[Rfam]
RNA sequence: GCUAACUGAUAUUCCGAGGAGUGGAACGAUGGGGUAACGCCCUGAAACGCUCCCCUUGAUACUACGACGUGCAAAGGCGGUGUAAAACGCUGUAUGUGCGAAGCUCGUUGAAGUCGGCAGAGAGACACCGAAACAUUAAGUUGUCGAAAGCUGUCCAGAGGUGGAUGGUGUGUCCUAUAUGCCGGAGGUCUAUAAA
Numbered sequence: 001g002c003u004a005a006c007u008g009a010u011a012u013u014c015c016g017a018g019g020a021g022u023g024g025a026a027c028g029a030u031g032g033g034g035u036a037a038c039g040c041c042c043u044g045a046a047a048c049g050c051u052c053c054c055c056u057u058g059a060u061a062c063u064a065c066g067a068c069g070u071g072c073a074a075a076g077g078c079g080g081u082g083u084a085a086a087a088c089g090c091u092g093u094a095u096g097u098g099c100g101a102a103g104c105u106c107g108u109u110g111a112a113g114u115c116g117g118c119a120g121a122g123a124g125a126c127a128c129c130g131a132a133a134c135a136u137u138a139a140g141u142u143g144u145c146g147a148a149a150g151c152u153g154u155c156c157a158g159a160g161g162u163g164g165a166u167g168g169u170g171u172g173u174c175c176u177a178u179a180u181g182c183c184g185g186a187g188g189u190c191u192a193u194a195a196a
Stems, first nucleotide, its partner, number of pairs: 018053006031043004054188004064108004068100005076091004081086001115184005124174005129146003150169008
Background:
This 196-nucleotide sequence from Clostridiales bacterium 1_7_47FAA belongs to the Rfam family "Group II catalytic intron D1-D4-5". Group II introns are found in rRNA, tRNA and mRNA of organelles in fungi, plants and protists, and also in mRNA in bacteria. The sequence is in the family's curated seed alignment. The literature on the family includes a 2001 paper in EMBO J by Chu et al., "Control of branch-site choice by a group II intron". The pairing is the family consensus, mapped onto this sequence.